RNA sequence: UGUUUGCUGUGAUGAAUCGCAAGGACGGUAUCUGAGUAAUUUGGCUCUUGAAAAAGGCCACCUUCCUUGAUUACACAUCCUAAACUGAUCAUAUAUUCUGAGCAGGCA
Numbered sequence: 001u002g003u004u005u006g007c008u009g010u011g012a013u014g015a016a017u018c019g020c021a022a023g024g025a026c027g028g029u030a031u032c033u034g035a036g037u038a039a040u041u042u043g044g045c046u047c048u049u050g051a052a053a054a055a056g057g058c059c060a061c062c063u064u065c066c067u068u069g070a071u072u073a074c075a076c077a078u079c080c081u082a083a084a085c086u087g088a089u090c091a092u093a094u095a096u097u098c099u100g101a102g103c104a105g106g107c108a
Base pairs, nucleotide, nucleotide: 001108002107003106004105005104006103007102036066038064039063

This 108-nucleotide RNA sequence from Triticum urartu belongs to the Rfam family "Small nucleolar RNA Z118/Z121/Z120". It scores 77 bits against the family's covariance model. The organism belongs to Triticum, within Eukaryota. On this family, see Chen et al., Nucleic Acids Res 2003: "The high diversity of snoRNAs in plants: identification and comparative study of 120 snoRNA genes from Oryza sativa". It is annotated as a C/D-box small nucleolar RNA.